[Rfam]
RNA sequence: CUCUAUUAAGGUGAUGGUGCUCCACCUUUCUCAACCGCCAAAAUUCUCUUGGAUGAUGACGCCUGAUAUAUA
Numbered sequence: 001c002u003c004u005a006u007u008a009a010g011g012u013g014a015u016g017g018u019g020c021u022c023c024a025c026c027u028u029u030c031u032c033a034a035c036c037g038c039c040a041a042a043a044u045u046c047u048c049u050u051g052g053a054u055g056a057u058g059a060c061g062c063c064u065g066a067u068a069u070a071u072a
Stems, first nucleotide, its partner, number of pairs: 010026004016063004021058001038052003
A member of the RNA family "Fluoride riboswitch aptamer (crcB RNA motif)" from bacteria symbiont BFo2 of Frankliniella occidentalis, 72 nucleotides long. Gene Ontology terms of the family: response to fluoride and positive regulation of gene expression. Lineage of the source: Bacteria > Pseudomonadati > Pseudomonadota > Gammaproteobacteria > Enterobacterales.